[Rfam]
RNA sequence: GGAUGUGGCUCUGGAGAAGCUCAAUGAUGAGUACCGAAGGUGCAAGGCGCGGUGUGCCGCGCUGAAUCUCUCAGGUAAAAGGACAGAGUAGAGAAA
Numbered sequence: 001g002g003a004u005g006u007g008g009c010u011c012u013g014g015a016g017a018a019g020c021u022c023a024a025u026g027a028u029g030a031g032u033a034c035c036g037a038a039g040g041u042g043c044a045a046g047g048c049g050c051g052g053u054g055u056g057c058c059g060c061g062c063u064g065a066a067u068c069u070c071u072c073a074g075g076u077a078a079a080a081g082g083a084c085a086g087a088g089u090a091g092a093g094a095a096a
Stems, first nucleotide, its partner, number of pairs: 006091001008089006020031004033076003036072002040070001042068001046063007

Rfam assigns this 96-nucleotide RNA sequence from Oscillibacter sp. PC13 to the family "Glycine riboswitch aptamer". A search with the family's covariance model found it, with a score of 59 bits. Clan: Glycine riboswitch clan.